RNA sequence: AAAGUAAAGGAGCAAUAAUGCCCUCUUGAUAGAACAAGAGGUUGGUUAUUGCUCCCUUACU
Numbered sequence: 001a002a003a004g005u006a007a008a009g010g011a012g013c014a015a016u017a018a019u020g021c022c023c024u025c026u027u028g029a030u031a032g033a034a035c036a037a038g039a040g041g042u043u044g045g046u047u048a049u050u051g052c053u054c055c056c057u058u059a060c061u
Stems, first nucleotide, its partner, number of pairs: 006058002009055009023040006
This 61-nucleotide RNA sequence from Diospyros dumetorum belongs to the Rfam family "Plastid-psbA-4 3UTR RNA". Rfam's curators write: Plastid psbA-4 is a non-coding RNA (ncRNA) present in plastids. It was identified in inverted repeat sequences in the 3 prime untranslate region (3UTR) of photosystem II quinone-binding protein (psbA). Its Rfam clan is "Plastid-psbA 3UTR RNA clan". Taxonomically the source falls in Diospyros (Eukaryota, eudicotyledons, Gunneridae, Pentapetalae). Rfam classes the family as a cis-regulatory element.